The family of this 87-nucleotide RNA sequence from Triticum aestivum is "Small nucleolar RNA SNORD25". Rfam links the family to the GO terms nucleolus and RNA processing.

[Rfam]
RNA sequence: GCGACGGUCAUGAGCCUUUGCAGACCUGUAAUGAUUCUUGCAAGCAUGAUCGCUUGAUUCAAAGAACAUCUAAGGGACCGAGUCGGC
Numbered sequence: 001g002c003g004a005c006g007g008u009c010a011u012g013a014g015c016c017u018u019u020g021c022a023g024a025c026c027u028g029u030a031a032u033g034a035u036u037c038u039u040g041c042a043a044g045c046a047u048g049a050u051c052g053c054u055u056g057a058u059u060c061a062a063a064g065a066a067c068a069u070c071u072a073a074g075g076g077a078c079c080g081a082g083u084c085g086g087c
Base pairs, nucleotide, nucleotide: 002085003084004083005082
Rfam 15.1 lists 985 matches to the family in 241 species. It scores 82 bits against the family's covariance model.